The family of this 76-nucleotide sequence from Xenopus tropicalis is "mir-192/215 microRNA precursor family".
RNA sequence: CCAGGAGGAUGACCUAUGAAAUGACAGCCACUUCCAUACCAAACAUGUCUGUCAUUUCUGUAGGCCAAUAUUCUGA
Numbered sequence: 001c002c003a004g005g006a007g008g009a010u011g012a013c014c015u016a017u018g019a020a021a022u023g024a025c026a027g028c029c030a031c032u033u034c035c036a037u038a039c040c041a042a043a044c045a046u047g048u049c050u051g052u053c054a055u056u057u058c059u060g061u062a063g064g065c066c067a068a069u070a071u072u073c074u075g076a
Stems, first nucleotide, its partner, number of pairs: 002075005008069001010067002013064004018058010029047002
Dot-bracket structure: .(((((.(.((.((((.((((((((((.((...............)).))))))))))..)))).)).).))))).
The family's consensus secondary structure was predicted with PFOLD.
This family represents the human microRNA (miRNA) precursors mir-192 and mir-215.